RNA: Cyano-1 RNA
Organism: Microcystis aeruginosa
RNA sequence: AAUUGUGUGAGGAGUGAGAAGAAAGCAAAGUCCUUGGGGUCGAAACACGGCAAGACUCCCGAGGGCUUUUCCAU
Numbered sequence: 001a002a003u004u005g006u007g008u009g010a011g012g013a014g015u016g017a018g019a020a021g022a023a024a025g026c027a028a029a030g031u032c033c034u035u036g037g038g039g040u041c042g043a044a045a046c047a048c049g050g051c052a053a054g055a056c057u058c059c060c061g062a063g064g065g066c067u068u069u070u071c072c073a074u
Stems, first nucleotide, its partner, number of pairs: 022069005031062002036060003039056003